[Rfam]
Notes: Early nodulin 40: a 233-nucleotide RNA from Paspalum vaginatum. The family's consensus secondary structure is taken from published work. A search with the family's covariance model found it, with a score of 85 bits. Gene Ontology term of the family: nodulation.

RNA sequence: AUGGAGCAUGCAUGGCAGGAGCGUCUGCAUGGUUCUUGAGAGAUGCGUAAGCAGCACGGCAGUAAGGAUGGACAAUGGCUGAGCUGAGCUCCUCCUCAUCAACCAUCAGUUUGUAUUUGUCCAUGCCUCUCGUGGCCUUCUCCACUGGCUUCCGGUUCCAGAUGGGCUCGGUGAGGCGUGGACAGAGACCGGCAAGUCAGAAAUCGGCAAUGUUGAGCUCCUUCAGGAGCCUA
Number, nucleotide and partner (000 for none) at each position: 001a000002u000003g000004g000005a000006g000007c000008a000009u000010g000011c000012a000013u000014g000015g000016c000017a000018g000019g000020a000021g000022c000023g000024u000025c000026u000027g000028c000029a000030u000031g000032g000033u000034u000035c000036u000037u000038g000039a000040g000041a000042g000043a000044u000045g000046c000047g000048u000049a000050a000051g000052c000053a000054g000055c000056a000057c000058g096059g095060c000061a000062g000063u000064a000065a000066g000067g000068a000069u000070g000071g000072a000073c000074a000075a000076u000077g000078g000079c000080u000081g000082a000083g000084c000085u000086g000087a000088g000089c000090u000091c000092c000093u000094c000095c059096u058097c000098a000099u000100c000101a000102a000103c000104c000105a000106u000107c000108a000109g189110u188111u187112u184113g183114u182115a000116u000117u000118u000119g000120u000121c000122c000123a000124u000125g000126c176127c175128u174129c000130u000131c000132g000133u000134g000135g000136c000137c000138u000139u000140c000141u000142c000143c000144a000145c000146u000147g000148g000149c000150u000151u000152c000153c000154g000155g000156u000157u000158c000159c000160a000161g000162a000163u000164g000165g000166g000167c000168u000169c000170g000171g000172u000173g000174a128175g127176g126177c000178g000179u000180g000181g000182a114183c113184a112185g000186a000187g111188a110189c109190c000191g000192g000193c000194a000195a000196g000197u000198c000199a000200g000201a000202a000203a000204u000205c000206g000207g000208c000209a000210a000211u000212g000213u000214u000215g000216a000217g230218c229219u228220c227221c000222u000223u000224c000225a000226g000227g220228a219229g218230c217231c000232u000233a000